[Rfam]
RNA sequence: UAAAGUUGAAUAUGCUUACCGUAGACAGUAGGAGCCUUUGGCUUAAUUUCCUACCGAGGUGUUGUGAUAGAACGUCAGUAGUUGUUGGACGAAAGUCCUUGCAAAUGAUGAUUCAUCAGGCCUUCGUAAUUCUACGGAGGCUUUUUACUUGCCUAU
Numbered sequence: 001u002a003a004a005g006u007u008g009a010a011u012a013u014g015c016u017u018a019c020c021g022u023a024g025a026c027a028g029u030a031g032g033a034g035c036c037u038u039u040g041g042c043u044u045a046a047u048u049u050c051c052u053a054c055c056g057a058g059g060u061g062u063u064g065u066g067a068u069a070g071a072a073c074g075u076c077a078g079u080a081g082u083u084g085u086u087g088g089a090c091g092a093a094a095g096u097c098c099u100u101g102c103a104a105a106u107g108a109u110g111a112u113u114c115a116u117c118a119g120g121c122c123u124u125c126g127u128a129a130u131u132c133u134a135c136g137g138a139g140g141c142u143u144u145u146u147a148c149u150u151g152c153c154u155a156u
Stems, first nucleotide, its partner, number of pairs: 028054006034042003120141009
A member of the RNA family "Ribosomal protein L10 leader" from Paenibacillus sp. IHBB 10380, 156 nucleotides long. Gene Ontology term of the family: regulation of gene expression. A search with the family's covariance model found it, with a score of 80 bits. It is annotated as a cis-regulatory leader. This family is a putative r-protein leader autoregulatory structure found in B. subtilis and other low-GC Gram-positive bacteria. It is located in the 5' untranslated regions of mRNAs encoding ribosomal proteins L10 and L12 (rplJ-rplL). A Rho-independent transcription terminator structure that is probably involved in regulation is included at the 3' end.